[Rfam]
RNA sequence: UCAAACCACUAGGGGUGUUUUAAGAAAACUGAGAUUGAAGUGCACCUUCAAGACCCUUUGAACCUGAUCUAGUUUACACUAGCGUAGGGAAGUGAAAAAGGGUUACG
Numbered sequence: 001u002c003a004a005a006c007c008a009c010u011a012g013g014g015g016u017g018u019u020u021u022a023a024g025a026a027a028a029c030u031g032a033g034a035u036u037g038a039a040g041u042g043c044a045c046c047u048u049c050a051a052g053a054c055c056c057u058u059u060g061a062a063c064c065u066g067a068u069c070u071a072g073u074u075u076a077c078a079c080u081a082g083c084g085u086a087g088g089g090a091a092g093u094g095a096a097a098a099a100g101g102g103u104u105a106c107g
Stems, first nucleotide, its partner, number of pairs: 007094004011057004016051001017029005036050005063088004069082004
About this RNA: This 107-nucleotide RNA sequence from Paraliobacillus ryukyuensis belongs to the Rfam family "TPP riboswitch aptamer (THI element)". NCBI's taxonomy places the organism under Bacteria, Bacillati, Bacilli, Bacillaceae, Paraliobacillus.